[Rfam]
RNA: tRNA
RNA sequence: GGCCCCUUCAUCUAACGGUUAGGAUUCAUGGUUUUCAUCCAUGCCACAGGGGUUCGAAUCCCCUAGGGGUCA
Numbered sequence: 001g002g003c004c005c006c007u008u009c010a011u012c013u014a015a016c017g018g019u020u021a022g023g024a025u026u027c028a029u030g031g032u033u034u035u036c037a038u039c040c041a042u043g044c045c046a047c048a049g050g051g052g053u054u055c056g057a058a059u060c061c062c063c064u065a066g067g068g069g070u071c072a
Stems, first nucleotide, its partner, number of pairs: 001071007010025004027043005048064005
Dot-bracket structure: (((((((..((((........)))).(((((.......)))))....(((((.......)))))))))))).